The family of this 45-nucleotide RNA from Zonotrichia albicollis is "Histone 3' UTR stem-loop". A reference for the family is Williams and Marzluff (1995), "The sequence of the stem and flanking sequences at the 3' end of histone mRNA are critical determinants for the binding of the stem-loop binding protein", Nucleic Acids Res. It is annotated as a cis-regulatory element. The match comes from Rfam's covariance-model search (36 bits). The family's consensus secondary structure is taken from published work.
RNA sequence: CCAAAGGCUCUUUUAAGAGCCACCACAACGUCAUUAAGGAGCUGU
Numbered sequence: 001c002c003a004a005a006g007g008c009u010c011u012u013u014u015a016a017g018a019g020c021c022a023c024c025a026c027a028a029c030g031u032c033a034u035u036a037a038g039g040a041g042c043u044g045u
Stems, first nucleotide, its partner, number of pairs: 006021006